RNA sequence: UUGCUAACGCGGGGGUCCUGCAAUGCUCCCGGUCGAACCGGCCGGCAUUGUGGGUGAGAAAUACCCUUUGAACCUGAUCUGGAUAAUGCCAGCGCAGGGAAGCGUACGGGCUUCGCCG
Number, nucleotide and partner (000 for none) at each position: 001u000002u000003g000004c000005u000006a000007a105008c104009g103010c102011g067012g066013g065014g064015g000016u061017c054018c053019u052020g051021c050022a049023a048024u047025g046026c045027u044028c000029c000030c000031g000032g000033u000034c000035g000036a000037a000038c000039c000040g000041g000042c000043c000044g027045g026046c025047a024048u023049u022050g021051u020052g019053g018054g017055u000056g000057a000058g000059a000060a000061a016062u000063a000064c014065c013066c012067u011068u000069u000070g000071a000072a000073c098074c097075u096076g095077a000078u000079c092080u091081g090082g089083a000084u000085a000086a000087u000088g000089c082090c081091a080092g079093c000094g000095c076096a075097g074098g073099g000100a000101a000102g010103c009104g008105u007106a000107c000108g000109g000110g000111c000112u000113u000114c000115g000116c000117c000118g000
Annotation: A member of the RNA family "TPP riboswitch aptamer (THI element)" from Burkholderia multivorans, 118 nucleotides long. The literature on the family includes a 2002 paper in J Biol Chem by Rodionov et al., "Comparative genomics of thiamin biosynthesis in procaryotes. New genes and regulatory mechanisms". A search with the family's covariance model found it, with a score of 62 bits. Lineage of the source: Bacteria > Pseudomonadota > Betaproteobacteria > Burkholderiaceae > Burkholderia multivorans.